[Rfam]
RNA sequence: CGUCGAGUUCGGCCUUGCUGCGCUGGGGGCCGGAGCCGGGGAACCACUUCCCCAUCUGGGGUGAAUCGUCACCGAGGGCGUGCGCUUGCGCAUGACGGAGGAGGCGUAGGGCCACGUCGUGCCCGAACCCGUCAGCUCACCCGGUAGACGUACGACAAA
Number, nucleotide and partner (000 for none) at each position: 001c150002g149003u148004c147005g000006a000007g000008u034009u033010c032011g031012g030013c029014c028015u027016u026017g000018c000019u000020g000021c000022g000023c000024u000025g000026g016027g015028g014029g013030c012031c011032g010033g009034a008035g145036c144037c143038g142039g141040g140041g000042a000043a000044c000045c058046a057047c000048u000049u000050c000051c000052c000053c000054a000055u000056c000057u046058g045059g130060g129061g128062u000063g000064a000065a000066u000067c106068g105069u104070c103071a000072c000073c000074g000075a000076g000077g000078g000079c000080g000081u000082g000083c000084g000085c000086u000087u000088g000089c000090g000091c000092a000093u000094g000095a000096c000097g000098g000099a000100g000101g000102a000103g070104g069105c068106g067107u000108a000109g124110g123111g122112c121113c000114a000115c000116g000117u000118c000119g000120u000121g112122c111123c110124c109125g000126a000127a000128c061129c060130c059131g000132u000133c000134a000135g000136c000137u000138c000139a000140c040141c039142c038143g037144g036145u035146a000147g004148a003149c002150g001151u000152a000153c000154g000155a000156c000157a000158a000159a000

c-di-AMP riboswitch aptamer (ydaO/yuaA leader): a 159-nucleotide sequence from Nocardioides piscis. A search with the family's covariance model found it, with a score of 56 bits. A reference for the family is Barrick et al. (2004), "New RNA motifs suggest an expanded scope for riboswitches in bacterial genetic control", Proc Natl Acad Sci U S A. Taxonomically the source falls in Nocardioides (Bacteria, Actinomycetota, Propionibacteriales, Nocardioidaceae).